[Rfam]
RNA sequence: CUCUUCUCAAUGAGCUCCUUCCUGCCCACAAAUCCAUGGCAGCCUAUGGAUUCGCACGAGAAGAAUAUUAACUGUUCAGUAUUGGCAAACUCACACUAUGGUGCUCCAUCGAUUGUGAUUUAGCCAGUGCUGUUCAACAAGU
Numbered sequence: 001c002u003c004u005u006c007u008c009a010a011u012g013a014g015c016u017c018c019u020u021c022c023u024g025c026c027c028a029c030a031a032a033u034c035c036a037u038g039g040c041a042g043c044c045u046a047u048g049g050a051u052u053c054g055c056a057c058g059a060g061a062a063g064a065a066u067a068u069u070a071a072c073u074g075u076u077c078a079g080u081a082u083u084g085g086c087a088a089a090c091u092c093a094c095a096c097u098a099u100g101g102u103g104c105u106c107c108a109u110c111g112a113u114u115g116u117g118a119u120u121u122a123g124c125c126a127g128u129g130c131u132g133u134u135c136a137a138c139a140a141g142u
Base pairs, nucleotide, nucleotide: 003063004062005061006060007059008058014055015054016050017049018048022042023041024040025039026038074135077132078131079130096111098109099108100107101106
Small nucleolar RNA SNORA75: a 142-nucleotide RNA sequence from Dromaius novaehollandiae. U23 belongs to the H/ACA class of snoRNAs. snoRNAs bind a number of proteins (including dyskerin, Gar1p and Nop10p in the case of the H/ACA class) to form snoRNP complexes. This class are thought to guide the sites of modification of uridines to pseudouridines by forming direct base pairing interactions with substrate RNAs. Targets include ribosomal and spliceosomal RNAs as well as the Trypanosoma spliced leader RNA (SL RNA) as possibly other, still unknown cellular RNAs. U23 can direct the pseudouridylation of U97 in human 18S rRNA (Bachellerie JP, Ganot, P unpublished data). U23 is encoded within intron 12 of the nucleolin gene in human, mouse, rat chicken, and Xenopus laevis. The base pairs follow the family's consensus structure, which was predicted with PFOLD. Its family is annotated with nucleolus and RNA processing in the Gene Ontology. For this family Rfam cites "The family of box ACA small nucleolar RNAs is defined by an evolutionarily conserved secondary structure and ubiquitous sequence elements essential for RNA accumulation" (Ganot et al., Genes Dev, 1997). It scores 81 bits against the family's covariance model.